[Rfam]
RNA sequence: UCCUUAUCAAGAGAGGUGGAGGGAUCGGCCCUAUGAAGCCCGGCAACCUGCGUCCGUGCAAGGUGCCAAAUCCGACGGCGUAUCAGAUCGAGAGAUGAGGU
Numbered sequence: 001u002c003c004u005u006a007u008c009a010a011g012a013g014a015g016g017u018g019g020a021g022g023g024a025u026c027g028g029c030c031c032u033a034u035g036a037a038g039c040c041c042g043g044c045a046a047c048c049u050g051c052g053u054c055c056g057u058g059c060a061a062g063g064u065g066c067c068a069a070a071u072c073c074g075a076c077g078g079c080g081u082a083u084c085a086g087a088u089c090g091a092g093a094g095a096u097g098a099g100g101u
Stems, first nucleotide, its partner, number of pairs: 002100007013041001015040003021031003025075004042067004047063002049060004071093001076090003081085001